[Rfam]
RNA: RT-16 RNA
Nucleotides: 210
Base pairs, nucleotide, nucleotide: 001021002020003019004018006016007015008014028202029201030200031199032198033197034196035195036194037193047130048129049128050127051126052125053124076120077119078118079117080116083113084112085111087109092105093104
Number, partner (000 for none) and nucleotide at each position: 001021c002020c003019c004018u005000u006016g007015c008014c009000u010000u011000g012000c013000a014008g015007g016006u017000u018004a019003g020002g021001g022000c023000c024000a025000c026000a027000c028202a029201c030200u031199c032198g033197c034196u035195u036194a037193c038000a039000g040000c041000a042000c043000c044000a045000a046000g047130g048129g049128g050127c051126u052125u053124c054000u055000g056000c057000c058000c059000c060000u061000u062000g063000g064000u065000c066000a067000u068000g069000a070000a071000a072000u073000a074000c075000a076120g077119c078118a079117g080116c081000g082000a083113c084112a085111g086000u087109u088000a089000g090000u091000a092105g093104u094000u095000u096000g097000u098000u099000c100000u101000u102000u103000u104093g105092c106000g107000a108000a109087a110000c111085c112084u113083g114000a115000a116080g117079c118078u119077g120076c121000g122000g123000u124053g125052g126051g127050g128049c129048u130047c131000a132000a133000u134000g135000a136000g137000c138000c139000a140000u141000c142000u143000u144000g145000a146000u147000g148000a149000a150000u151000g152000a153000a154000a155000c156000u157000u158000c159000a160000u161000u162000g163000g164000g165000g166000c167000c168000u169000u170000g171000u172000g173000c174000c175000g176000g177000c178000a179000a180000a181000c182000a183000c184000a185000u186000g187000g188000c189000u190000u191000a192000a193037g194036u195035a196034a197033g198032c199031g200030g201029g202028u203000u204000a205000c206000a207000u208000u209000g210000g